RNA sequence: GGCGGGUCUCCCCGCAUGGCUAAGUUGCCAACCUGGUCAGGUCCGGAAGGAAGCAGCCACAGCGACCGAUGCCAGUGCCGGGGGUAAGGCUCGCCACC
Number, nucleotide and partner (000 for none) at each position: 001g000002g000003c000004g092005g091006g090007u089008c088009u084010c083011c082012c081013c080014g079015c075016a000017u074018g073019g072020c071021u000022a000023a000024g066025u065026u064027g063028c062029c000030a000031a000032c000033c000034u059035g058036g057037u056038c000039a000040g000041g000042u051043c050044c049045g000046g000047a000048a000049g044050g043051a042052a000053g000054c000055a000056g037057c036058c035059a034060c000061a000062g028063c027064g026065a025066c024067c000068g000069a000070u000071g020072c019073c018074a017075g015076u000077g000078c000079c014080g013081g012082g011083g010084g009085u000086a000087a000088g008089g007090c006091u005092c004093g000094c000095c000096a000097c000098c000

Annotation: This 98-nucleotide RNA from Sulfuritortus calidifontis belongs to the Rfam family "Bacterial small signal recognition particle RNA". The source organism's lineage runs through Bacteria, Pseudomonadota, Betaproteobacteria, Thiobacillaceae and Sulfuritortus. Rfam's curators write: The signal recognition particle (SRP) is a universally conserved ribonucleoprotein involved in the co-translational targeting of proteins to membranes. The match comes from Rfam's covariance-model search (75 bits). The family's consensus secondary structure is taken from published work. By type it is a non-coding RNA gene.